Shown here is a 356-nucleotide sequence from Bifidobacterium tissieri, a member of the family "Bacterial RNase P class A". The family's consensus secondary structure is taken from published work. By type it is a ribozyme. The match comes from Rfam's covariance-model search (305 bits). NCBI's taxonomy places the organism under Bacteria, Actinomycetota, Actinomycetes, Bifidobacteriales, Bifidobacterium.
RNA sequence: CGAGACCUCCUGAUGGCCGCGACGGCAUAAGCCGUUGAGGAACUUCCGGGCUCCAUAGAGCACGAUGGCGGAUAACGUCCGCCCAGGGUGACCUGAGAGAUAGCGCAACAGAGAACAGACCGCCGGCCUAGGCCGGUAAGGGUGAAACGGCGGUGUAAGAGACCACCGGGCCGCUGGUAACAGGGGCCGCAUGGCAAGCCUCAUCGGGAGCAAGGCCAAGCAGAAGGCGAUAAGAGCUGCUCGCUCGUGUCUUCGGGUAGGCUGCUAGAGCUUGACGGCGACGUCAAGUCGAGAUGGAUGGCCAUCCGCGUGACUGGUUCACGUGACAGAACCCGGGGUAUCGGAGGUCUCAUUUU
Dot-bracket structure: .(((((((((.(((((((.(((((((....)))))))....[[[.[[[[[((((...[[[[.((((((((((.....)))))(((((....)))).)((...((((.............((((((((....))))))..)).......((.(((.......))).))(((((.(((....))).)))).)...))..)))))))))))))...((((.....((((((.....((((.]]]]))))..)))))).....))))......((((((((....))))))))..........))))))).........................]]]]]]]]...))))))))).....
Numbered sequence: 001c002g003a004g005a006c007c008u009c010c011u012g013a014u015g016g017c018c019g020c021g022a023c024g025g026c027a028u029a030a031g032c033c034g035u036u037g038a039g040g041a042a043c044u045u046c047c048g049g050g051c052u053c054c055a056u057a058g059a060g061c062a063c064g065a066u067g068g069c070g071g072a073u074a075a076c077g078u079c080c081g082c083c084c085a086g087g088g089u090g091a092c093c094u095g096a097g098a099g100a101u102a103g104c105g106c107a108a109c110a111g112a113g114a115a116c117a118g119a120c121c122g123c124c125g126g127c128c129u130a131g132g133c134c135g136g137u138a139a140g141g142g143u144g145a146a147a148c149g150g151c152g153g154u155g156u157a158a159g160a161g162a163c164c165a166c167c168g169g170g171c172c173g174c175u176g177g178u179a180a181c182a183g184g185g186g187c188c189g190c191a192u193g194g195c196a197a198g199c200c201u202c203a204u205c206g207g208g209a210g211c212a213a214g215g216c217c218a219a220g221c222a223g224a225a226g227g228c229g230a231u232a233a234g235a236g237c238u239g240c241u242c243g244c245u246c247g248u249g250u251c252u253u254c255g256g257g258u259a260g261g262c263u264g265c266u267a268g269a270g271c272u273u274g275a276c277g278g279c280g281a282c283g284u285c286a287a288g289u290c291g292a293g294a295u296g297g298a299u300g301g302c303c304a305u306c307c308g309c310g311u312g313a314c315u316g317g318u319u320c321a322c323g324u325g326a327c328a329g330a331a332c333c334c335g336g337g338g339u340a341u342c343g344g345a346g347g348u349c350u351c352a353u354u355u356u
Stems, first nucleotide, its partner, number of pairs: 002351009012306007020037007042339003046336005051210004058242004063206005068082005083097001084095004098201002103199002105195002120141002122137006149167002152164003168190001169188004174183003214263004223254006234246004270289008